[Rfam]
RNA sequence: CGGCGACAAGGGCACACCCGCCGAAAGGCGGGGCCGCAAAGCCACGGGCCUACCGCCCGCACCGCGGGCCAGGGCAGCCGGGCUGCCGCA
Numbered sequence: 001c002g003g004c005g006a007c008a009a010g011g012g013c014a015c016a017c018c019c020g021c022c023g024a025a026a027g028g029c030g031g032g033g034c035c036g037c038a039a040a041g042c043c044a045c046g047g048g049c050c051u052a053c054c055g056c057c058c059g060c061a062c063c064g065c066g067g068g069c070c071a072g073g074g075c076a077g078c079c080g081g082g083c084u085g086c087c088g089c090a
Stems, first nucleotide, its partner, number of pairs: 012037002017032006040084004045080003048075003055069006
This 90-nucleotide RNA sequence from Caldinitratiruptor microaerophilus belongs to the Rfam family "c-di-GMP-I riboswitch aptamer". Its Rfam clan is "c-di-GMP_I riboswitch clan". For this family Rfam cites "Identification of 22 candidate structured RNAs in bacteria using the CMfinder comparative genomics pipeline" (Weinberg et al., Nucleic Acids Res, 2007). It scores 61 bits against the family's covariance model. The source organism's lineage runs through Bacteria, Bacillota, Clostridia, Eubacteriales and Caldinitratiruptor.